[Rfam]
RNA sequence: CAGCCGGGACGACCCGGCGGCGCGCGUCCGCGCUCACCAUCCGGGACGGCCCGG
Numbered sequence: 001c002a003g004c005c006g007g008g009a010c011g012a013c014c015c016g017g018c019g020g021c022g023c024g025c026g027u028c029c030g031c032g033c034u035c036a037c038c039a040u041c042c043g044g045g046a047c048g049g050c051c052c053g054g
Stems, first nucleotide, its partner, number of pairs: 001020001003018006041054005
RNA: Guanidine-II riboswitch aptamer (mini-ykkC)
Organism: Roseospira navarrensis